This 30-nucleotide sequence from Haloquadratum walsbyi belongs to the Rfam family "CRISPR RNA direct repeat element".
The family has 4 seed sequences and 2,265 matches in Rfam 15.1.
It scores 39 bits against the family's covariance model.
The source organism's lineage runs through Archaea, Methanobacteriati, Halobacteriales, Haloferacaceae and Haloquadratum.
RNA sequence: GUUUCACAUGAACCCUUGAUGGGUUGAAGC
Numbered sequence: 001g002u003u004u005c006a007c008a009u010g011a012a013c014c015c016u017u018g019a020u021g022g023g024u025u026g027a028a029g030c
Stems, first nucleotide, its partner, number of pairs: 011025005